[Rfam]
RNA sequence: AGAGGAAGCCAGUGAUGUCUUAGCCGUGGUGUCUGAACCUGGCUGAAGGACUCUUCUGAAGACUCACUCCAAGGCUCUGAGGCUUCCGGGGUG
Numbered sequence: 001a002g003a004g005g006a007a008g009c010c011a012g013u014g015a016u017g018u019c020u021u022a023g024c025c026g027u028g029g030u031g032u033c034u035g036a037a038c039c040u041g042g043c044u045g046a047a048g049g050a051c052u053c054u055u056c057u058g059a060a061g062a063c064u065c066a067c068u069c070c071a072a073g074g075c076u077c078u079g080a081g082g083c084u085u086c087c088g089g090g091g092u093g
Base pairs, nucleotide, nucleotide: 004087005086006085007084008083009082010081